[Rfam]
RNA sequence: ACCAUACAUAGUAACUGACGACAUAAAUGGAUCUAACCAUAUGGGAGCUGUGUAUAUGUAUAGCCGGUCGUCUGGGCGAAAGAA
Dot-bracket structure: ...(((((((((..(([[[[[.....((((......))))..))..))))))))).....(.(((..]]]]]..))).).....